[Rfam]
RNA sequence: AGCUGGAGAGAAGGCAAGAUGUUGGCAUAGCUGUUGAGUUAAGAACCUGCUAUGCCGACAUGUUGUCAUCUUUCUUGUCU
Numbered sequence: 001a002g003c004u005g006g007a008g009a010g011a012a013g014g015c016a017a018g019a020u021g022u023u024g025g026c027a028u029a030g031c032u033g034u035u036g037a038g039u040u041a042a043g044a045a046c047c048u049g050c051u052a053u054g055c056c057g058a059c060a061u062g063u064u065g066u067c068a069u070c071u072u073u074c075u076u077g078u079c080u
Base pairs, nucleotide, nucleotide: 005075006074007073008072009071010070011069013067014066015065016064017063019061020060021059023057024056025055026054027053028052029051030050031049

This 80-nucleotide sequence from Ornithorhynchus anatinus belongs to the Rfam family "mir-31 microRNA precursor family". The family has 75 seed sequences and 1,181 matches in Rfam 15.1. The family's consensus secondary structure was predicted with RNAalifold. Taxonomically the source falls in Ornithorhynchus (Eukaryota, Opisthokonta, Deuterostomia, Sarcopterygii).